A member of the RNA family "Ribosomal protein L10 leader" from Cohnella zeiphila, 160 nucleotides long. It is annotated as a cis-regulatory leader. The family's consensus secondary structure was predicted with CMfinder.

RNA sequence: CAAAGUUGAAUAUCGAUACCGUAGACCGUAGGUGCCGAGAGGCUUAAUUUCCUACCGAGGUGUGUGGAUAGAGGGAAGGCCGAUUCCGUCAGGAUGAGCGCCGGAACGAUAAGACACGUCAUGCCUCCGCAGCGUCUGCGGAGGCAUUUUUGAUGCCGCG
Numbered sequence: 001c002a003a004a005g006u007u008g009a010a011u012a013u014c015g016a017u018a019c020c021g022u023a024g025a026c027c028g029u030a031g032g033u034g035c036c037g038a039g040a041g042g043c044u045u046a047a048u049u050u051c052c053u054a055c056c057g058a059g060g061u062g063u064g065u066g067g068a069u070a071g072a073g074g075g076a077a078g079g080c081c082g083a084u085u086c087c088g089u090c091a092g093g094a095u096g097a098g099c100g101c102c103g104g105a106a107c108g109a110u111a112a113g114a115c116a117c118g119u120c121a122u123g124c125c126u127c128c129g130c131a132g133c134g135u136c137u138g139c140g141g142a143g144g145c146a147u148u149u150u151u152g153a154u155g156c157c158g159c160g
Base pairs, nucleotide, nucleotide: 028055029054030053031052032051034043035042036041123145124144125143126142127141128140129139130138131137132136
A search with the family's covariance model found it, with a score of 67 bits.